RNA sequence: UCGGCUCCGGUUCACGCCGUGGGCAAUUCCGCCCCCUGCGACCCGGCGCC
Numbered sequence: 001u002c003g004g005c006u007c008c009g010g011u012u013c014a015c016g017c018c019g020u021g022g023g024c025a026a027u028u029c030c031g032c033c034c035c036c037u038g039c040g041a042c043c044c045g046g047c048g049c050c
Base pairs, nucleotide, nucleotide: 003050004049005048007046008045009044010043015040016039017038019036021034022033023032
About this RNA: The family of this 50-nucleotide RNA from Streptomyces sp. NRRL S-87 is "L31-Actinobacteria ribosomal protein leader". Its Rfam clan is "Ribosomal Protein L31 Leader clan". The family's consensus secondary structure is taken from published work. Taxonomically the source falls in Streptomyces (Bacteria, Bacillati, Actinomycetes, Kitasatosporales).